[Rfam]
RNA sequence: CCCGCCACUAUGCCUGUCUGUCAGUGGCUGAGUAUAAUCCAGUGGAGGCUAAGAUUGACCCAGCUUUAGGAAACAGGGAUGCCCGAAAACAAUGGACAACUUUGUGCCGCAAAGUCUGGAACACAA
Numbered sequence: 001c002c003c004g005c006c007a008c009u010a011u012g013c014c015u016g017u018c019u020g021u022c023a024g025u026g027g028c029u030g031a032g033u034a035u036a037a038u039c040c041a042g043u044g045g046a047g048g049c050u051a052a053g054a055u056u057g058a059c060c061c062a063g064c065u066u067u068a069g070g071a072a073a074c075a076g077g078g079a080u081g082c083c084c085g086a087a088a089a090c091a092a093u094g095g096a097c098a099a100c101u102u103u104g105u106g107c108c109g110c111a112a113a114g115u116c117u118g119g120a121a122c123a124c125a126a
Stems, first nucleotide, its partner, number of pairs: 005045005018032002020029001021027002060119004064114004069108002074104005083095002
Shown here is a 126-nucleotide RNA from Dissostichus mawsoni, a member of the family "Small nucleolar RNA SNORA65".
A reference for the family is Huttenhofer et al. (2001), "RNomics: an experimental approach that identifies 201 candidates for novel, small, non-messenger RNAs in mouse", EMBO J.
Taxonomically the source falls in Dissostichus (Eukaryota, Opisthokonta, Deuterostomia, Osteoglossocephalai).
Clan: SNORA65 clan.
U65 belongs to the H/ACA class of snoRNAs which are thought to guide the sites of modification of uridines to pseudouridines.
By type it is an H/ACA-box small nucleolar RNA.